[Rfam]
RNA sequence: GGUUGUAAUUCCUUUGAAACAGAGGAAUAUCGGACGGGGUUUCAAUACCCCCAGCUCCACCAGAAGUAUUGGUUAGAGUGGCAAGUAGGGAUUUACCAAGAUCCCGAGGGUUGGAAUUCUCUACCUGUGAACAACAGGAUACUUCUGAUGGGGCUGUAAGGUUUCGACGGUGUUAUGAAGUGGAUACGGCAACCCGUCAGGCGAAUGACGUAAAGAUAGCAAAACUUAACUGCAAACGAUGCAUACUUUUUGGUGGCUGCUAACGCUUAA
Numbered sequence: 001g002g003u004u005g006u007a008a009u010u011c012c013u014u015u016g017a018a019a020c021a022g023a024g025g026a027a028u029a030u031c032g033g034a035c036g037g038g039g040u041u042u043c044a045a046u047a048c049c050c051c052c053a054g055c056u057c058c059a060c061c062a063g064a065a066g067u068a069u070u071g072g073u074u075a076g077a078g079u080g081g082c083a084a085g086u087a088g089g090g091a092u093u094u095a096c097c098a099a100g101a102u103c104c105c106g107a108g109g110g111u112u113g114g115a116a117u118u119c120u121c122u123a124c125c126u127g128u129g130a131a132c133a134a135c136a137g138g139a140u141a142c143u144u145c146u147g148a149u150g151g152g153g154c155u156g157u158a159a160g161g162u163u164u165c166g167a168c169g170g171u172g173u174u175a176u177g178a179a180g181u182g183g184a185u186a187c188g189g190c191a192a193c194c195c196g197u198c199a200g201g202c203g204a205a206u207g208a209c210g211u212a213a214a215g216a217u218a219g220c221a222a223a224a225c226u227u228a229a230c231u232g233c234a235a236a237c238g239a240u241g242c243a244u245a246c247u248u249u250u251u252g253g254u255g256g257c258u259g260c261u262a263a264c265g266c267u268u269a270a
Stems, first nucleotide, its partner, number of pairs: 001194005014184002017181001026174003030170003036051004052156007195210004
Annotation
permuted transfer-messenger RNA: a 270-nucleotide sequence from Erysipelotrichaceae bacterium UBA6182. Bacterial tmRNA, also known as 10Sa RNA or SsrA, is named for its dual tRNA and mRNA-like properties. Its role is to liberate the mRNA from a stalled ribosome. To accomplish this part of the tmRNA is used as a reading frame that ends in a translation stop signal. Rfam classes the family as a non-coding RNA gene. Rfam links the family to the GO term RNA catabolic process. The organism belongs to Erysipelotrichaceae, within Bacteria. It is one of the family's seed sequences.